[Rfam]
RNA: Selenocysteine transfer RNA
Organism: Thalassobacillus cyri
RNA sequence: GGGGCUGGUUGCUAUGCUGGUGCAGGCCACAGUCUUCAAAACUGCUUGUGAGGCGCGUGUCGUCUCAGGUGGGUUCGAUUCCCACACAGUCCC
Numbered sequence: 001g002g003g004g005c006u007g008g009u010u011g012c013u014a015u016g017c018u019g020g021u022g023c024a025g026g027c028c029a030c031a032g033u034c035u036u037c038a039a040a041a042c043u044g045c046u047u048g049u050g051a052g053g054c055g056c057g058u059g060u061c062g063u064c065u066c067a068g069g070u071g072g073g074u075u076c077g078a079u080u081c082c083c084a085c086a087c088a089g090u091c092c093c
Base pairs, nucleotide, nucleotide: 001093002092003091004090005089006088007087008085011027012026013025015024016023017022029046030044031043032042033041049067050066051065052064053063070084071083072082073081